[Rfam]
RNA sequence: AAAACGGUUCUUUUCAGAACCACAAAUCUAAAAAAAAAAAAGGAA
Number, nucleotide and partner (000 for none) at each position: 001a000002a000003a000004a000005c000006g021007g020008u019009u018010c017011u016012u000013u000014u000015c000016a011017g010018a009019a008020c007021c006022a000023c000024a000025a000026a000027u000028c000029u000030a000031a000032a000033a000034a000035a000036a000037a000038a000039a000040a000041a000042g000043g000044a000045a000
Shown here is a 45-nucleotide sequence from Ceutorhynchus assimilis, a member of the family "Histone 3' UTR stem-loop". Rfam describes the family as follows. The mRNAs of metazoan histone genes lack a poly-A tail. 3' end processing occurs at a site between a highly conserved stem-loop (modelled by this family) and a purine rich region around 20 nts downstream (the histone downstream element, or HDE). The stem-loop is bound by a 31 kDa stem-loop binding protein (SLBP - also termed the histone hairpin binding protein, or HBP). Together with U7 snRNA binding of the HDE, SLBP binding nucleate s the formation of the processing complex. The histone 3' UTR stem-loop is also involved in nucleocytoplasmic transport of the mRNA, and in stability regulation and translation efficiency in the cytoplasm. It is annotated as a cis-regulatory element. Gene Ontology term of the family: mRNA 3'-end processing by stem-loop binding and cleavage.